[Rfam]
RNA sequence: GUCGUCCACUAGGGGUGCCUUAUCUGAAGGCUGAGAUUAGAGUAAUGCUUUAAGACCCUUAGAACCUGAUCUGGUUUAUACCAGCGUAGGGAAGUGGAGUUGUGGAAUA
Numbered sequence: 001g002u003c004g005u006c007c008a009c010u011a012g013g014g015g016u017g018c019c020u021u022a023u024c025u026g027a028a029g030g031c032u033g034a035g036a037u038u039a040g041a042g043u044a045a046u047g048c049u050u051u052a053a054g055a056c057c058c059u060u061a062g063a064a065c066c067u068g069a070u071c072u073g074g075u076u077u078a079u080a081c082c083a084g085c086g087u088a089g090g091g092a093a094g095u096g097g098a099g100u101u102g103u104g105g106a107a108u109a
Stems, first nucleotide, its partner, number of pairs: 006097005011059004016053001017031005038052005065090004071084004
RNA: TPP riboswitch aptamer (THI element)